[Rfam]
RNA sequence: CUUUCAACCCACCCCUAUCCAGGAUGGUUGUUGAACC
Numbered sequence: 001c002u003u004u005c006a007a008c009c010c011a012c013c014c015c016u017a018u019c020c021a022g023g024a025u026g027g028u029u030g031u032u033g034a035a036c037c
Base pairs, nucleotide, nucleotide: 005033006032007031008030009027010026013023014022

The record is a 37-nucleotide sequence from Scytonema hofmannii, which matches "CRISPR RNA direct repeat element" in Rfam. The base pairs follow the family's consensus structure, which was predicted with WAR. The match comes from Rfam's covariance-model search (45 bits). NCBI's taxonomy places the organism under Bacteria, Cyanobacteriota, Cyanophyceae, Nostocales, Scytonema hofmannii. Its family is annotated with defense response in the Gene Ontology.